[Rfam]
RNA sequence: AGAUCCUCAGUGGUCUGGGGUGCAGGCUUCAACCCUGUAGCUGUUUAACGACAGAGUGGUUCAAUUCCACCU
Numbered sequence: 001a002g003a004u005c006c007u008c009a010g011u012g013g014u015c016u017g018g019g020g021u022g023c024a025g026g027c028u029u030c031a032a033c034c035c036u037g038u039a040g041c042u043g044u045u046u047a048a049c050g051a052c053a054g055a056g057u058g059g060u061u062c063a064a065u066u067c068c069a070c071c072u
Stems, first nucleotide, its partner, number of pairs: 001072002005020006021039006041054005056070004
RNA: Selenocysteine transfer RNA